Rfam assigns this 106-nucleotide sequence to the family "DUF3577 RNA". The sequence is in the family's curated seed alignment.
RNA sequence: CGGAUCAUAAGGCAGCACGCUGCCGAAAUCGUCUGCAAUCCGGCCAGCAUCGCGCAAGCGGUGUGACGACCCGUCUUUACGCUGUAUCUAUCCAUACAGCCCUCUC
Numbered sequence: 001c002g003g004a005u006c007a008u009a010a011g012g013c014a015g016c017a018c019g020c021u022g023c024c025g026a027a028a029u030c031g032u033c034u035g036c037a038a039u040c041c042g043g044c045c046a047g048c049a050u051c052g053c054g055c056a057a058g059c060g061g062u063g064u065g066a067c068g069a070c071c072c073g074u075c076u077u078u079a080c081g082c083u084g085u086a087u088c089u090a091u092c093c094a095u096a097c098a099g100c101c102c103u104c105u106c
Stems, first nucleotide, its partner, number of pairs: 011024005029069005048063006081100007